Small nucleolar RNA Z155: a 75-nucleotide RNA sequence from Lathyrus oleraceus. Rfam classes the family as a C/D-box small nucleolar RNA. It scores 50 bits against the family's covariance model. A reference for the family is Chen et al. (2003), "The high diversity of snoRNAs in plants: identification and comparative study of 120 snoRNA genes from Oryza sativa", Nucleic Acids Res. Pairs were carried over by alignment from the consensus structure.

RNA sequence: CAUUGAGUUGAUGAUAUAUUGAACCGAAUUAAUAUGACGAUGGUAAAAUUUCAGACUACAAUUAUCUGAUCAAUG
Numbered sequence: 001c002a003u004u005g006a007g008u009u010g011a012u013g014a015u016a017u018a019u020u021g022a023a024c025c026g027a028a029u030u031a032a033u034a035u036g037a038c039g040a041u042g043g044u045a046a047a048a049u050u051u052c053a054g055a056c057u058a059c060a061a062u063u064a065u066c067u068g069a070u071c072a073a074u075g
Stems, first nucleotide, its partner, number of pairs: 001075006